[Rfam]
RNA sequence: UUGGUUUAAAUCAAGGUGAAUCUCACACUUUGGAAAUGAGUUCCACUUAAAGUGGUGGGACACACAUUAAUUUCAUCCCA
Dot-bracket structure: (.((.(.((((.((.(((....((((((((((...............))))))).)))....))).)).)))).).)).)
Background
Rfam assigns this 80-nucleotide RNA from Medicago truncatula to the family "MIR5269 microRNA precursor family". The match comes from Rfam's covariance-model search (60 bits). Gene Ontology terms of the family: miRNA-mediated post-transcriptional gene silencing and RISC complex.